RNA sequence: UUGAUUUAAAUCAUUGUAAGUCUUCACUUUGAAAAUUGAAUCCCCACAAAGUGGUGGGACAUAUAUUGAUUUCAUCCAA
Dot-bracket structure: (((..(.((((((.((((...((.(((((((...............)))))))..))....)))).)))))).)..)))
The record is a 79-nucleotide RNA sequence from Medicago truncatula, which matches "MIR5269 microRNA precursor family" in Rfam. Lineage of the source: Eukaryota > Tracheophyta > Euphyllophyta > Magnoliopsida > Medicago. Rfam links the family to the GO terms RISC complex and miRNA-mediated post-transcriptional gene silencing.